FMN riboswitch aptamer (RFN element): a 125-nucleotide sequence from Dorea sp. AF36-15AT. Pairs were carried over by alignment from the consensus structure, which is taken from published work. From the family's description: The RFN element is a highly conserved domain that is found frequently in the 5'-untranslated regions of prokaryotic mRNAs that encode for flavin mononucleotide (FMN) biosynthesis and transport proteins. The source organism's lineage runs through Bacteria, Clostridia, Lachnospirales, Lachnospiraceae and Dorea.
RNA sequence: CAAUAUCUUCGGGGCGGGGCGCAAUUCCCCACCGGCAGUAAAGUCUGCGAACUCUGAACACAGUCAGAGCCGAACUGGUGAGAUUCCAGUACCGACGGUUAUAGUCCGGAUGAAAGAGGAUGUAC
Dot-bracket structure: ..((((((((......(((.......))).[[((((((....[[))))...((..............))....(((((.......)))))]])).(((.....]]))).......))))))))..